[Rfam]
RNA sequence: AGGUCGCUAGCUCAAUGGUCAGAGCAGUCGCCUCUUAAGCGACGGGUUCGGGGUUUCAGUCCCCGGCGACCUA
Numbered sequence: 001a002g003g004u005c006g007c008u009a010g011c012u013c014a015a016u017g018g019u020c021a022g023a024g025c026a027g028u029c030g031c032c033u034c035u036u037a038a039g040c041g042a043c044g045g046g047u048u049c050g051g052g053g054u055u056u057c058a059g060u061c062c063c064c065g066g067c068g069a070c071c072u073a
Base pairs, nucleotide, nucleotide: 001072002071003070004069005068006067007066010025011024012023013022027043028042029041030040031039049065050064051063052062053061
This 73-nucleotide RNA sequence from Actinokineospora auranticolor belongs to the Rfam family "tRNA". The match comes from Rfam's covariance-model search (62 bits). The base pairs follow the family's consensus structure, which is taken from published work. The source organism's lineage runs through Bacteria, Bacillati, Actinomycetes, Pseudonocardiaceae and Actinokineospora. The family's RNA type in Rfam is transfer RNA.